[Rfam]
Rfam assigns this 397-nucleotide RNA sequence from Chelatococcus composti to the family "Bacterial RNase P class A". Lineage of the source: Bacteria > Pseudomonadati > Hyphomicrobiales > Chelatococcaceae > Chelatococcus. About the family: Ribonuclease P (RNase P) is a ubiquitous endoribonuclease, found in archaea, bacteria and eukarya as well as chloroplasts and mitochondria.
RNA sequence: CCAGUCGGCCGGGCGGCCGCUGCACCGGCCGCGCCGGUGCAGAGGAAAGUCCGGGCUCCUAGGAAACACGGUGCCGGAUAACGUCCGGCGGGGGUGACCCCAGGGACAGUGCCACAGAAAGCAAACCGCCUUUCGAAGCCUUUGGCGCAGAAGGGCAAGGGUGAAAGGGUGCGGUAAGAGCGCACCGCGUCGGCGGCAACGUCGACGGCACGGCAAACCCCACCGGGAGCAAGACCGAAUAGGGACGACGGGGCGCGCAAGCGCCCGGGCCUGUUUCCAGCCUUGUCGUCCGGGUUGGUUGCUCGAGGCGGUCGGUAACGACCGUCCCAGAUGAAUGGCCGUCACGUCCGGGGCGACCCGGGCCAUACAGAACCCGGCUUACAGGCCGGCUGGCACC
Numbered sequence: 001c002c003a004g005u006c007g008g009c010c011g012g013g014c015g016g017c018c019g020c021u022g023c024a025c026c027g028g029c030c031g032c033g034c035c036g037g038u039g040c041a042g043a044g045g046a047a048a049g050u051c052c053g054g055g056c057u058c059c060u061a062g063g064a065a066a067c068a069c070g071g072u073g074c075c076g077g078a079u080a081a082c083g084u085c086c087g088g089c090g091g092g093g094g095u096g097a098c099c100c101c102a103g104g105g106a107c108a109g110u111g112c113c114a115c116a117g118a119a120a121g122c123a124a125a126c127c128g129c130c131u132u133u134c135g136a137a138g139c140c141u142u143u144g145g146c147g148c149a150g151a152a153g154g155g156c157a158a159g160g161g162u163g164a165a166a167g168g169g170u171g172c173g174g175u176a177a178g179a180g181c182g183c184a185c186c187g188c189g190u191c192g193g194c195g196g197c198a199a200c201g202u203c204g205a206c207g208g209c210a211c212g213g214c215a216a217a218c219c220c221c222a223c224c225g226g227g228a229g230c231a232a233g234a235c236c237g238a239a240u241a242g243g244g245a246c247g248a249c250g251g252g253g254c255g256c257g258c259a260a261g262c263g264c265c266c267g268g269g270c271c272u273g274u275u276u277c278c279a280g281c282c283u284u285g286u287c288g289u290c291c292g293g294g295u296u297g298g299u300u301g302c303u304c305g306a307g308g309c310g311g312u313c314g315g316u317a318a319c320g321a322c323c324g325u326c327c328c329a330g331a332u333g334a335a336u337g338g339c340c341g342u343c344a345c346g347u348c349c350g351g352g353g354c355g356a357c358c359c360g361g362g363c364c365a366u367a368c369a370g371a372a373c374c375c376g377g378c379u380u381a382c383a384g385g386c387c388g389g390c391u392g393g394c395a396c397c
Stems, first nucleotide, its partner, number of pairs: 001393010011382001012343007020042009047380003051377005056229004065276002069225005074088005089103001090101004104220002109218002111214003126160002128156007168186006187209001188207008233300004243291006268282003307326008